[Rfam]
RNA: tRNA
Organism: Methylophaga muralis
RNA sequence: GUCCCUGUAGCUCAGAUGGAUAGAGCGUCCCCCUCCUAAGGGGAAGGUCAUGCGUUCGAAUCGCAUCGGGGACA
Number, nucleotide and partner (000 for none) at each position: 001g073002u072003c071004c070005c069006u068007g067008u000009a000010g026011c025012u024013c023014a000015g000016a000017u000018g000019g000020a000021u000022a000023g013024a012025g011026c010027g000028u044029c043030c042031c041032c040033c000034u000035c000036c000037u000038a000039a000040g032041g031042g030043g029044a028045a000046g000047g000048u000049c000050a066051u065052g064053c063054g062055u000056u000057c000058g000059a000060a000061u000062c054063g053064c052065a051066u050067c007068g006069g005070g004071g003072a002073c001074a000